[Rfam]
RNA sequence: GACUGGCCUGAGUGCAGUGCUGUUUACAACCAAUUGAUCACAACCAAUUACAGAUUUUUUUUGUUUCUUCUCCUCUCCCACUGCUUCACUUGACCAGCCUUUA
Numbered sequence: 001g002a003c004u005g006g007c008c009u010g011a012g013u014g015c016a017g018u019g020c021u022g023u024u025u026a027c028a029a030c031c032a033a034u035u036g037a038u039c040a041c042a043a044c045c046a047a048u049u050a051c052a053g054a055u056u057u058u059u060u061u062u063g064u065u066u067c068u069u070c071u072c073c074u075c076u077c078c079c080a081c082u083g084c085u086u087c088a089c090u091u092g093a094c095c096a097g098c099c100u101u102u103a
Base pairs, nucleotide, nucleotide: 001099003097004096005095006094008092010091011090014087016082017081018080019079022077028065029064030063032061033060
RNA: Y RNA
Organism: Saimiri boliviensis